[Rfam]
RNA sequence: UCGUAACACGAACCGGUGCUAAAGGGUCCUGCCCAACGGCUACUGACAGGUGCGGGCAGAGACCCUUUAGCACCGGUUCGUAUUACAAA
Numbered sequence: 001u002c003g004u005a006a007c008a009c010g011a012a013c014c015g016g017u018g019c020u021a022a023a024g025g026g027u028c029c030u031g032c033c034c035a036a037c038g039g040c041u042a043c044u045g046a047c048a049g050g051u052g053c054g055g056g057c058a059g060a061g062a063c064c065c066u067u068u069a070g071c072a073c074c075g076g077u078u079c080g081u082a083u084u085a086c087a088a089a
Stems, first nucleotide, its partner, number of pairs: 003086004008081020030059001032055002036051002043049002
A member of the RNA family "MIR5387 microRNA precursor family" from Sorghum bicolor, 89 nucleotides long. The family's consensus secondary structure was predicted with RNAalifold. The family has 2 seed sequences and 1,029 matches in Rfam 15.1. Its family is annotated with RISC complex and miRNA-mediated post-transcriptional gene silencing in the Gene Ontology.